[Rfam]
RNA sequence: GGCGAUAAACGCUACGUGGAAUAAGCGUAACGGACCCGGGGGCAGUACCCGGCGCCUCCACCAAUUUCCCGCCUCGCGGGGGCUUCAUGGGGGCGAAACAGGAUCGACGUGCGUGGUAAAGACGUGGUUUUCGCCCGGAAUGGCUCCGCCGUUAUCGGGCCGUUUUCACAAGUGCCAAUGACAACGAAAUGGCGCUCGCUGCCUAA
Numbered sequence: 001g002g003c004g005a006u007a008a009a010c011g012c013u014a015c016g017u018g019g020a021a022u023a024a025g026c027g028u029a030a031c032g033g034a035c036c037c038g039g040g041g042g043c044a045g046u047a048c049c050c051g052g053c054g055c056c057u058c059c060a061c062c063a064a065u066u067u068c069c070c071g072c073c074u075c076g077c078g079g080g081g082g083c084u085u086c087a088u089g090g091g092g093g094c095g096a097a098a099c100a101g102g103a104u105c106g107a108c109g110u111g112c113g114u115g116g117u118a119a120a121g122a123c124g125u126g127g128u129u130u131u132c133g134c135c136c137g138g139a140a141u142g143g144c145u146c147c148g149c150c151g152u153u154a155u156c157g158g159g160c161c162g163u164u165u166u167c168a169c170a171a172g173u174g175c176c177a178a179u180g181a182c183a184a185c186g187a188a189a190u191g192g193c194g195c196u197c198g199c200u201g202c203c204u205a206a
Stems, first nucleotide, its partner, number of pairs: 001135005014125004026113003030110003036052005053095007136151003
Dot-bracket structure: (((((........((((........(((.(((...(((((.......)))))(((((((.............................)))))))............))))))........)))).....)))))(((..........))).......................................................
This 206-nucleotide RNA sequence from Minwuia thermotolerans belongs to the Rfam family "permuted transfer-messenger RNA". Pairs were carried over by alignment from the consensus structure, which is taken from published work. It scores 152 bits against the family's covariance model. The organism belongs to Minwuia, within Bacteria. The literature on the family includes a 1996 paper in RNA by Williams and Bartel, "Phylogenetic analysis of tmRNA secondary structure". From the family's description: Bacterial tmRNA, also known as 10Sa RNA or SsrA, is named for its dual tRNA and mRNA-like properties. Its role is to liberate the mRNA from a stalled ribosome. To accomplish this part of the tmRNA is used as a reading frame that ends in a translation stop signal. The broken mRNA is replaced in the ribosome by the tmRNA and translation of the tmRNA leads to addition of a proteolysis tag to the incomplete protein enabling recognition by a protease.